RNA sequence: CCCAGGGAAGCGUUUUGUCCACGUCAGCAAAGCGCUUCCUCGAAGACGCGUAUUUUGCUGACGUGGACAAAGCGCUUCCCUGAGG
Numbered sequence: 001c002c003c004a005g006g007g008a009a010g011c012g013u014u015u016u017g018u019c020c021a022c023g024u025c026a027g028c029a030a031a032g033c034g035c036u037u038c039c040u041c042g043a044a045g046a047c048g049c050g051u052a053u054u055u056u057g058c059u060g061a062c063g064u065g066g067a068c069a070a071a072g073c074g075c076u077u078c079c080c081u082g083a084g085g
Stems, first nucleotide, its partner, number of pairs: 001084001003082019023062009032051004038045001

Notes: MIR7486 microRNA precursor family: an 85-nucleotide sequence from Gossypium stocksii. It scores 69 bits against the family's covariance model. The base pairs follow the family's consensus structure, which was predicted with RNAalifold. NCBI's taxonomy places the organism under Eukaryota, Magnoliopsida, Mesangiospermae, Malvoideae, Gossypium.